The family of this 169-nucleotide sequence from Luteimonas sp. FCS-9 is "FMN riboswitch aptamer (RFN element)".
RNA sequence: GAAUGUCUUCAGGGCGGGGUGGAAGUCCCCACCGGCGGUAGGCGCGGCGACGCGCGAGCCCGCGAGCGCUGCCGGCGGCGUGCGAGAUCCUCGCAUCGGCCCUGGCAGGUCAGCAGACCCGGUCGAAGUCCGGGGCCGACGGUCACAGUCCGGAUGCGAGAAGACGACG
Numbered sequence: 001g002a003a004u005g006u007c008u009u010c011a012g013g014g015c016g017g018g019g020u021g022g023a024a025g026u027c028c029c030c031a032c033c034g035g036c037g038g039u040a041g042g043c044g045c046g047g048c049g050a051c052g053c054g055c056g057a058g059c060c061c062g063c064g065a066g067c068g069c070u071g072c073c074g075g076c077g078g079c080g081u082g083c084g085a086g087a088u089c090c091u092c093g094c095a096u097c098g099g100c101c102c103u104g105g106c107a108g109g110u111c112a113g114c115a116g117a118c119c120c121g122g123u124c125g126a127a128g129u130c131c132g133g134g135g136c137c138g139a140c141g142g143u144c145a146c147a148g149u150c151c152g153g154a155u156g157c158g159a160g161a162a163g164a165c166g167a168c169g
Stems, first nucleotide, its partner, number of pairs: 004166007017029003031149002033138002035063004058136002066114002118134005140152003

Taxonomically the source falls in Luteimonas (Bacteria, Pseudomonadati, Gammaproteobacteria, Lysobacteraceae). On this family, see Vitreschak et al., Nucleic Acids Res 2002: "Regulation of riboflavin biosynthesis and transport genes in bacteria by transcriptional and translational attenuation".